RNA sequence: GCAGGCUACGCGGGAGAGAUCGUUGGCAGCAGGGCAAGGCUCCUGUUCGACAACGGCGCCGAAGGAGCAACCGCCCCGGAAACUCUCAGGCAAAUGGACCGCGGCAGCCUC
Number, nucleotide and partner (000 for none) at each position: 001g000002c000003a000004g000005g000006c000007u000008a000009c103010g102011c101012g100013g099014g000015a000016g000017a000018g000019a000020u056021c055022g054023u053024u052025g051026g000027c000028a000029g000030c000031a000032g000033g000034g000035c000036a000037a000038g000039g000040c000041u000042c000043c000044u000045g000046u000047u000048c000049g000050a000051c025052a024053a023054c022055g021056g020057c000058g091059c090060c089061g087062a086063a000064g000065g085066a084067g083068c000069a000070a000071c079072c078073g000074c000075c000076c000077c000078g072079g071080a000081a000082a000083c067084u066085c065086u062087c061088a000089g060090g059091c058092a000093a000094a000095u000096g000097g000098a000099c013100c012101g011102c010103g009104g000105c000106a000107g000108c000109c000110u000111c000
Shown here is a 111-nucleotide RNA from Hartmannibacter diazotrophicus, a member of the family "Glycine riboswitch aptamer". The match comes from Rfam's covariance-model search (57 bits). The source organism's lineage runs through Bacteria, Pseudomonadota, Alphaproteobacteria, Hyphomicrobiales and Hartmannibacter.